[Rfam]
RNA sequence: GGAGGGGAGGGGGGUCCUUCAGCCCAGAUUGUGAGAGGGCACAGGCCAGGCUGAGGGACCCCACCGGUGCAGG
Dot-bracket structure: (.(..((...((((((((((((((..(.(((((......))))).)..)))))))))))))).))..).)...
Record summary:
Shown here is a 73-nucleotide RNA from Myotis brandtii, a member of the family "mir-9193 microRNA precursor family". Lineage of the source: Eukaryota > Opisthokonta > Boreoeutheria > Chiroptera > Myotis. A search with the family's covariance model found it, with a score of 71 bits.